[Rfam]
RNA sequence: CCCGGAACGCCUAGAACCCACACACGUAUCGACACGGUAUCCUGGGUGCCCGCGAGGGUUGGAUAUCGGGAUGCGUGGAGGCCUAAC
Numbered sequence: 001c002c003c004g005g006a007a008c009g010c011c012u013a014g015a016a017c018c019c020a021c022a023c024a025c026g027u028a029u030c031g032a033c034a035c036g037g038u039a040u041c042c043u044g045g046g047u048g049c050c051c052g053c054g055a056g057g058g059u060u061g062g063a064u065a066u067c068g069g070g071a072u073g074c075g076u077g078g079a080g081g082c083c084u085a086a087c
Stems, first nucleotide, its partner, number of pairs: 023077008035068008048059004